[Rfam]
RNA sequence: GGUCAAAAGUUUGAGGCCGUAGCAGAAGUGCUCGUGGCAUGGCCCUGUCAGAGUCCAAUGAAUGUGCAAAUUCUGUU
Numbered sequence: 001g002g003u004c005a006a007a008a009g010u011u012u013g014a015g016g017c018c019g020u021a022g023c024a025g026a027a028g029u030g031c032u033c034g035u036g037g038c039a040u041g042g043c044c045c046u047g048u049c050a051g052a053g054u055c056c057a058a059u060g061a062a063u064g065u066g067c068a069a070a071u072u073c074u075g076u077u
Base pairs, nucleotide, nucleotide: 013045015044016043017042018041021077022076023075024074025073026072027071028040029039030038049066050065052063054061055060

Mammalian CPEB3 ribozyme: a 77-nucleotide RNA sequence from Alligator sinensis. A search with the family's covariance model found it, with a score of 37 bits. The family's consensus secondary structure is taken from published work.